[Rfam]
Plastid-psbA-1 3UTR RNA: a 106-nucleotide RNA from Mikania micrantha.
Pairs were carried over by alignment from the consensus structure, which was predicted with LocARNA.
It is annotated as a cis-regulatory element.
RNA sequence: UUGAAGCUCCAUCUACAAAUGGAUAAGACUUUGGUAGGAGUUUUUUCACUAAAAAAGGAGCAAUACCUUUCCUCUUGUUUUAUCAAGAGGGCGUUAUUACUCCUUU
Numbered sequence: 001u002u003g004a005a006g007c008u009c010c011a012u013c014u015a016c017a018a019a020u021g022g023a024u025a026a027g028a029c030u031u032u033g034g035u036a037g038g039a040g041u042u043u044u045u046u047c048a049c050u051a052a053a054a055a056a057g058g059a060g061c062a063a064u065a066c067c068u069u070u071c072c073u074c075u076u077g078u079u080u081u082a083u084c085a086a087g088a089g090g091g092c093g094u095u096a097u098u099a100c101u102c103c104u105u106u
Stems, first nucleotide, its partner, number of pairs: 008023005054106007062098004069091002072089005